[Rfam]
RNA sequence: AGCCCCCACGUCAGCCGCGCGCGAAGCGUCACUCUCCCGGGGGAAUUUGCCCAACUCGGCUGGAUUCCGGGCCGGUUGCCUGGCAUAUGCUCACGCCGACCCCAACUAAAAAAGUUCGGCCCCCGCCGGGACUGGCAUCCCGAUCGAGGGCCUGACCAACGAGGAAGCGAACCCUUCCCG
Number, nucleotide and partner (000 for none) at each position: 001a000002g000003c000004c000005c000006c000007c000008a000009c000010g000011u000012c000013a000014g000015c000016c000017g000018c000019g000020c000021g000022c000023g000024a000025a000026g000027c000028g000029u044030c043031a000032c041033u040034c039035u000036c000037c000038c000039g034040g033041g032042g000043g030044a029045a000046u000047u000048u000049g000050c000051c000052c000053a000054a000055c000056u000057c000058g000059g096060c095061u093062g092063g091064a000065u000066u000067c000068c000069g000070g000071g000072c000073c000074g000075g000076u000077u000078g000079c000080c000081u000082g000083g000084c000085a000086u000087a000088u000089g000090c000091u063092c062093a061094c000095g060096c059097c000098g000099a000100c000101c000102c000103c000104a000105a000106c000107u000108a000109a000110a000111a000112a000113a000114g000115u000116u000117c000118g152119g151120c150121c149122c148123c000124c146125g145126c000127c000128g141129g140130g139131a138132c000133u000134g000135g000136c000137a000138u131139c130140c129141c128142g000143a000144u000145c125146g124147a000148g122149g121150g120151c119152c118153u000154g000155a000156c000157c000158a000159a000160c000161g000162a000163g178164g177165a176166a175167g174168c000169g000170a000171a000172c000173c000174c167175u166176u165177c164178c163179c000180g000